[Rfam]
Rfam assigns this 64-nucleotide RNA to the family "RAGATH-18 RNA".
RNA sequence: CCUUUGGAGAGCUAUACCAAACUAGAGUAGUCUUAUGACCAAAUAGAGUUCUAUGAAGAAGGAA
Numbered sequence: 001c002c003u004u005u006g007g008a009g010a011g012c013u014a015u016a017c018c019a020a021a022c023u024a025g026a027g028u029a030g031u032c033u034u035a036u037g038a039c040c041a042a043a044u045a046g047a048g049u050u051c052u053a054u055g056a057a058g059a060a061g062g063a064a
Stems, first nucleotide, its partner, number of pairs: 001062005009051005022046003030039003
The base pairs follow the family's consensus structure, which is taken from published work.